[Rfam]
RNA: Bacterial RNase P class A
Organism: Ornithinimicrobium sp. CNJ-824
RNA sequence: UGAGUCGGCCAGGCGGCCGCGUCGGACCCCCGGGUCCGCCGAGGAACGUCCGGGCUCCACAGGGCACGGUGGUGGCUAACGGCCACCCGGGGCGACCCGCGGGACAGUGCCACAGAAAGUAGACCGCCCACCGGUCCGCCGGUGGGUCAGGGUGAAAGGGUGGUGUAAGAGACCACCAGCACGCCAGGCGACUGGCGUGGCUCGGUAAACCCCACCGGGAGCAAGACCAGACAGUGCGUGCUCGAGGGCUGCCCGCCCGAGCGCACGGGUAGGUCGCUGGAGGCGGUCGGCAACGGCCGUCGUAGAUGGAUGGCCGCCACCUCCGCAGGGCCGGCGACGGCGCGGAGGGACAGAACCCGGCGUACCGGUCGGCUCAUCCU
Numbered sequence: 001u002g003a004g005u006c007g008g009c010c011a012g013g014c015g016g017c018c019g020c021g022u023c024g025g026a027c028c029c030c031c032g033g034g035u036c037c038g039c040c041g042a043g044g045a046a047c048g049u050c051c052g053g054g055c056u057c058c059a060c061a062g063g064g065c066a067c068g069g070u071g072g073u074g075g076c077u078a079a080c081g082g083c084c085a086c087c088c089g090g091g092g093c094g095a096c097c098c099g100c101g102g103g104a105c106a107g108u109g110c111c112a113c114a115g116a117a118a119g120u121a122g123a124c125c126g127c128c129c130a131c132c133g134g135u136c137c138g139c140c141g142g143u144g145g146g147u148c149a150g151g152g153u154g155a156a157a158g159g160g161u162g163g164u165g166u167a168a169g170a171g172a173c174c175a176c177c178a179g180c181a182c183g184c185c186a187g188g189c190g191a192c193u194g195g196c197g198u199g200g201c202u203c204g205g206u207a208a209a210c211c212c213c214a215c216c217g218g219g220a221g222c223a224a225g226a227c228c229a230g231a232c233a234g235u236g237c238g239u240g241c242u243c244g245a246g247g248g249c250u251g252c253c254c255g256c257c258c259g260a261g262c263g264c265a266c267g268g269g270u271a272g273g274u275c276g277c278u279g280g281a282g283g284c285g286g287u288c289g290g291c292a293a294c295g296g297c298c299g300u301c302g303u304a305g306a307u308g309g310a311u312g313g314c315c316g317c318c319a320c321c322u323c324c325g326c327a328g329g330g331c332c333g334g335c336g337a338c339g340g341c342g343c344g345g346a347g348g349g350a351c352a353g354a355a356c357c358c359g360g361c362g363u364a365c366c367g368g369u370c371g372g373c374u375c376a377u378c379c380u
Stems, first nucleotide, its partner, number of pairs: 001376010012318007020041002023038006046363003050360005055221004062254004067217005072086005087101001088099004102212002107210002109206003124151002126147009159177006179201001180199008225275004234266006246258004282301008